[Rfam]
RNA sequence: AAGGCAGGGAUUGUGUGUAUCGACUCGUGCAGAAAUUACAGUGCACACAGAUCGAAAGAGUUCCCUGCAAAAUUGAGAGAUGGGGAAGAUGGGCAGUUGUGUUUCGGAAAAAUUGGUCGAAAUCUUCAACAAUCAUCUUCCCCACAUUC
Number, nucleotide and partner (000 for none) at each position: 001a000002a000003g000004g068005c067006a066007g065008g064009g063010a062011u000012u000013g000014u000015g046016u045017g044018u043019a042020u041021c000022g000023a000024c000025u000026c000027g000028u000029g000030c000031a000032g000033a000034a000035a000036u000037u000038a000039c000040a000041g020042u019043g018044c017045a016046c015047a000048c000049a000050g000051a000052u000053c000054g000055a000056a000057a000058g000059a000060g000061u000062u010063c009064c008065c007066u006067g005068c004069a000070a000071a000072a000073u000074u000075g000076a000077g000078a000079g000080a000081u000082g143083g142084g141085g140086a139087a138088g137089a136090u135091g134092g133093g000094c000095a000096g130097u129098u128099g127100u000101g000102u000103u000104u000105c000106g000107g000108a000109a000110a000111a000112a000113u000114u000115g000116g000117u000118c000119g000120a000121a000122a000123u000124c000125u000126u000127c099128a098129a097130c096131a000132a000133u092134c091135a090136u089137c088138u087139u086140c085141c084142c083143c082144a000145c000146a000147u000148u000149c000
Rfam assigns this 149-nucleotide RNA from Rhododendron simsii to the family "small nucleolar RNA snoR135". The family's consensus secondary structure was predicted with RNAalifold. The source organism's lineage runs through Eukaryota, Viridiplantae, Mesangiospermae, Ericoideae and Rhododendron.